Shown here is a 141-nucleotide sequence from Nasonia vitripennis, a member of the family "U4 spliceosomal RNA".
[Rfam]
RNA sequence: AUCUCUGCGCAGUGGCGAUAUCGUAACCAAUGAGGUUCUACCGAGGUGCGAUUAUUGCUAGUUGAAAACUUUUACCAAUACCCCGCCAAGACGAUGUGAAAUACCAUCGGCUACGGCAAUUUUUGACAGCCCUUACGAGGG
Numbered sequence: 001a002u003c004u005c006u007g008c009g010c011a012g013u014g015g016c017g018a019u020a021u022c023g024u025a026a027c028c029a030a031u032g033a034g035g036u037u038c039u040a041c042c043g044a045g046g047u048g049c050g051a052u053u054a055u056u057g058c059u060a061g062u063u064g065a066a067a068a069c070u071u072u073u074a075c076c077a078a079u080a081c082c083c084c085g086c087c088a089a090g091a092c093g094a095u096g097u098g099a100a101a102u103a104c105c106a107u108c109g110g111c112u113a114c115g116g117c118a119a120u121u122u123u124u125g126a127c128a129g130c131c132c133u134u135a136c137g138a139g140g141g
Base pairs, nucleotide, nucleotide: 020052021051022050023049024048026047027046028045034042035041036040085117086116087115089112090111092109093108094107095106096105097103098102130141131140132139133138
The family has 177 seed sequences and 32,178 matches in Rfam 15.1.